Record summary:
Rfam assigns this 103-nucleotide sequence from Ornithinibacillus caprae to the family "SAM riboswitch aptamer (S box leader)". Pairs were carried over by alignment from the consensus structure, which is taken from published work.
[Rfam]
RNA sequence: CUCUUAUCAAGAGAAGGCGGAGGGAAUGGCCCUAUGAAGCCCGGCAACCGAUAAUAUUUUUAUUACACGGUGCUAAAUCCUGCGAAUCAUUGCGAGAUAAGAG
Dot-bracket structure: ((((((((....(..(((...(((...[[)))......))))((((.(((..(.........)..)..))))))...(]]..(((....)))..)))))))))